[Rfam]
Shown here is a 179-nucleotide RNA from Thermanaerosceptrum fracticalcis, a member of the family "Lysine riboswitch aptamer". Pairs were carried over by alignment from the consensus structure, which is taken from published work.
RNA sequence: AUUAAUGGUAGAGGCGCGGCAUAUUAUGAGUACGUAUCGGGAGCAGGCCGGCGAUGACGGGUACGGAAAGGAAUGGCCGCCGAAGUGAAGGUUUUCAGGCCGGGGACCUUUGCUGGGCUUGUGUUGAAUAAGCACAAGACUGUCACCCAAUAUUUUUUGGGUGGAGCGCUAUUUCGUAC
Numbered sequence: 001a002u003u004a005a006u007g008g009u010a011g012a013g014g015c016g017c018g019g020c021a022u023a024u025u026a027u028g029a030g031u032a033c034g035u036a037u038c039g040g041g042a043g044c045a046g047g048c049c050g051g052c053g054a055u056g057a058c059g060g061g062u063a064c065g066g067a068a069a070g071g072a073a074u075g076g077c078c079g080c081c082g083a084a085g086u087g088a089a090g091g092u093u094u095u096c097a098g099g100c101c102g103g104g105g106a107c108c109u110u111u112g113c114u115g116g117g118c119u120u121g122u123g124u125u126g127a128a129u130a131a132g133c134a135c136a137a138g139a140c141u142g143u144c145a146c147c148c149a150a151u152a153u154u155u156u157u158u159g160g161g162u163g164g165a166g167c168g169c170u171a172u173u174u175c176g177u178a179c
Base pairs, nucleotide, nucleotide: 007173008172009171010170011169016080017079018078019077020076023074024073025072033065034064035063036062037061038060040058084114085113086112087111088110089109090108091107092106093105094104095103115141116140118138119137120136121135122134123133124132125131143164144163145162146161147160148159149158